[Rfam]
RNA sequence: CGGGAGUGCAUUGUAGUUGCAUUGCAUGUGAGGCCACAGGUGUGCAAUGCCCCUCCAGUGCAGCCCCG
Numbered sequence: 001c002g003g004g005a006g007u008g009c010a011u012u013g014u015a016g017u018u019g020c021a022u023u024g025c026a027u028g029u030g031a032g033g034c035c036a037c038a039g040g041u042g043u044g045c046a047a048u049g050c051c052c053c054u055c056c057a058g059u060g061c062a063g064c065c066c067c068g
Base pairs, nucleotide, nucleotide: 001068002067003066004065006064007062008061009060010059011058012057013056015054016053019050021048022047023046024045025044026043027042

The family of this 68-nucleotide sequence from Pogona vitticeps is "mir-33 microRNA precursor family".
On this family, see Ahn et al., Mol Hum Reprod 2010: "MicroRNA transcriptome in the newborn mouse ovaries determined by massive parallel sequencing".
Pairs were carried over by alignment from the consensus structure, which was predicted with PFOLD.